RNA sequence: UACUGUUGGUGAUGAUGAAUUCUAAGCAAUGGGAAUCUCUCUGAAUGGGGCUGAGGAGGACUCAUGCACUGAAACAGUA
Numbered sequence: 001u002a003c004u005g006u007u008g009g010u011g012a013u014g015a016u017g018a019a020u021u022c023u024a025a026g027c028a029a030u031g032g033g034a035a036u037c038u039c040u041c042u043g044a045a046u047g048g049g050g051c052u053g054a055g056g057a058g059g060a061c062u063c064a065u066g067c068a069c070u071g072a073a074a075c076a077g078u079a
Base pairs, nucleotide, nucleotide: 001079002078003077004076005075006074007073

A member of the RNA family "Small nucleolar RNA SNORD79" from Syrrhaptes paradoxus, 79 nucleotides long. It is annotated as a C/D-box small nucleolar RNA. The base pairs follow the family's consensus structure, which was predicted with PFOLD. For this family Rfam cites "Purified box C/D snoRNPs are able to reproduce site-specific 2'-O-methylation of target RNA in vitro" (Galardi et al., Mol Cell Biol, 2002).